The family of this 92-nucleotide sequence from Callithrix jacchus is "Vault RNA". Rfam classes the family as a non-coding RNA gene. Taxonomically the source falls in Callithrix (Eukaryota, Craniata, Mammalia, Callitrichinae).
[Rfam]
RNA sequence: GGGCCGGCUUUAGCUCAGCAGUUACUUCGACAGUGCUUUCUAUACAACCACUCUGUGUGGUUCGAGACCCGUGGGCUCUCCCCGGUCUUUAA
Numbered sequence: 001g002g003g004c005c006g007g008c009u010u011u012a013g014c015u016c017a018g019c020a021g022u023u024a025c026u027u028c029g030a031c032a033g034u035g036c037u038u039u040c041u042a043u044a045c046a047a048c049c050a051c052u053c054u055g056u057g058u059g060g061u062u063c064g065a066g067a068c069c070c071g072u073g074g075g076c077u078c079u080c081c082c083c084g085g086u087c088u089u090u091a092a
Stems, first nucleotide, its partner, number of pairs: 002087006013076004018072002021069001026066005